A member of the RNA family "Flavivirus DB element" from Orthoflavivirus zikaense, 65 nucleotides long.
By type it is a cis-regulatory element.
The organism belongs to Orthoflavivirus zikaense, within Viruses.
The base pairs follow the family's consensus structure, which is taken from published work.
Rfam's curators put it in the seed alignment.
[Rfam]
RNA sequence: CACGGCCCAAGCCUCGUCUAGGAUGCAAUAGACGAGGUAGAGGGACUAGAGGUUAGAGGAGACCC
Numbered sequence: 001c002a003c004g005g006c007c008c009a010a011g012c013c014u015c016g017u018c019u020a021g022g023a024u025g026c027a028a029u030a031g032a033c034g035a036g037g038u039a040g041a042g043g044g045a046c047u048a049g050a051g052g053u054u055a056g057a058g059g060a061g062a063c064c065c
Stems, first nucleotide, its partner, number of pairs: 005065001006044002011038008051064004
Dot-bracket structure: ....(((...((((((((............))))))))....))......((((......)))))
Rfam describes the family as follows. This family represents the flavivirus 3' UTR elements DB1 and DB2. These DB elements are thought to be required for efficient translation.